A member of the RNA family "mir-676 microRNA precursor family" from Carlito syrichta, 73 nucleotides long. The literature on the family includes a 2006 paper in Nucleic Acids Res by Mineno et al., "The expression profile of microRNAs in mouse embryos". Its family is annotated with RISC complex and miRNA-mediated post-transcriptional gene silencing in the Gene Ontology. Taxonomically the source falls in Carlito (Eukaryota, Chordata, Theria, Euarchontoglires). Pairs were carried over by alignment from the consensus structure, which was predicted with RNAalifold.
[Rfam]
Nucleotides: 073
Base pairs, nucleotide, nucleotide: 002072003071005069006068011063012062015059016058017057018056019055020054022052023051024050025049026048029046030045031044
Number, partner (000 for none) and nucleotide at each position: 001000a002072g003071u004000u005069c006068a007000u008000g009000a010000c011063u012062c013000u014000a015059u016058a017057a018056c019055c020054u021000c022052a023051g024050g025049a026048c027000u028000u029046g030045c031044a032000g033000a034000a035000u036000u037000a038000a039000a040000g041000g042000a043000a044031u045030g046029c047000u048026g049025u050024c051023c052022u053000a054020a055019g056018g057017u058016u059015g060000u061000u062012g063011a064000a065000g066000u067000g068006u069005g070000c071003a072002u073000u
Rfam 15.1 lists 104 matches to the family in 103 species. It scores 79 bits against the family's covariance model.